The record is a 508-nucleotide RNA sequence from Saccharopolyspora thermophila, which matches "Saccharopolyspora sRNA 350" in Rfam. The base pairs follow the family's consensus structure, which was predicted with RNAfold. Lineage of the source: Bacteria > Actinomycetota > Pseudonocardiales > Pseudonocardiaceae > Saccharopolyspora. The literature on the family includes a 2013 paper in PLoS One by Liu et al., "Prediction and characterization of small non-coding RNAs related to secondary metabolites in Saccharopolyspora erythraea".
RNA sequence: UGGAACGUACUGUCCCAUGUGGUCUCGUCGGGGGCGAGCGCGUUGCCACCGAAGAACUCGCCGUCGGCGAGGAUGCCGAGCACGGUGUCGUCGCCGUACUCGCCGCGGCCGAUCCGGUUGACCUUGCCGUGUGCGAUCAGCACCACCUGCUCGGCGAGUUCCCCGGUGGAGGCAAUGACCUGGCCCGGCUCGUACUGGCGUUGCACGAACCGGUCGGCCAGCGCGCCCAGCGCGGAGUCGUCGUCGAAGCCGCGCAGCAGCGGGAGCUCCGCGAGUUUCUGGGGGAUCACCCGCACGUCUGCGCCGGUGAAGGCGAAGGUGAUGCGGCCGUCGCCGACCGCGUAGGUCAACCUGCGGUUGACCCGGUAGGUGCCGGCCUCGACGUUCACCCACGGCAGCAUCCGCACCAGCCACCGCGAGGUGAUGCCCUGCAUCUGCGGUGGUGUCUUGGUGGUCGACGACAGCUUCCGCGCCGCUGCGGUGCUGAGGCUGAGCGGGGUCUGCUCGA
Numbered sequence: 001u002g003g004a005a006c007g008u009a010c011u012g013u014c015c016c017a018u019g020u021g022g023u024c025u026c027g028u029c030g031g032g033g034g035c036g037a038g039c040g041c042g043u044u045g046c047c048a049c050c051g052a053a054g055a056a057c058u059c060g061c062c063g064u065c066g067g068c069g070a071g072g073a074u075g076c077c078g079a080g081c082a083c084g085g086u087g088u089c090g091u092c093g094c095c096g097u098a099c100u101c102g103c104c105g106c107g108g109c110c111g112a113u114c115c116g117g118u119u120g121a122c123c124u125u126g127c128c129g130u131g132u133g134c135g136a137u138c139a140g141c142a143c144c145a146c147c148u149g150c151u152c153g154g155c156g157a158g159u160u161c162c163c164c165g166g167u168g169g170a171g172g173c174a175a176u177g178a179c180c181u182g183g184c185c186c187g188g189c190u191c192g193u194a195c196u197g198g199c200g201u202u203g204c205a206c207g208a209a210c211c212g213g214u215c216g217g218c219c220a221g222c223g224c225g226c227c228c229a230g231c232g233c234g235g236a237g238u239c240g241u242c243g244u245c246g247a248a249g250c251c252g253c254g255c256a257g258c259a260g261c262g263g264g265a266g267c268u269c270c271g272c273g274a275g276u277u278u279c280u281g282g283g284g285g286a287u288c289a290c291c292c293g294c295a296c297g298u299c300u301g302c303g304c305c306g307g308u309g310a311a312g313g314c315g316a317a318g319g320u321g322a323u324g325c326g327g328c329c330g331u332c333g334c335c336g337a338c339c340g341c342g343u344a345g346g347u348c349a350a351c352c353u354g355c356g357g358u359u360g361a362c363c364c365g366g367u368a369g370g371u372g373c374c375g376g377c378c379u380c381g382a383c384g385u386u387c388a389c390c391c392a393c394g395g396c397a398g399c400a401u402c403c404g405c406a407c408c409a410g411c412c413a414c415c416g417c418g419a420g421g422u423g424a425u426g427c428c429c430u431g432c433a434u435c436u437g438c439g440g441u442g443g444u445g446u447c448u449u450g451g452u453g454g455u456c457g458a459c460g461a462c463a464g465c466u467u468c469c470g471c472g473c474c475g476c477u478g479c480g481g482u483g484c485u486g487a488g489g490c491u492g493a494g495c496g497g498g499g500u501c502u503g504c505u506c507g508a
Stems, first nucleotide, its partner, number of pairs: 002390002004386003012328002019325002023322002025319002028316002035313001039309003045305001047303001049301001051299002054233001057230002060227001062225003065111004075103001077102004082097005117222004122217002127212001129210002131206006138197003148192002153189001155187002158184002160178002166173002234296001240290002243287003250282003254278001256277003262269001329342003351381001354378001355375003361371003391431002394428004399423003403418003437476004442471001445468001448464003452460001477507002480502002484499002488495001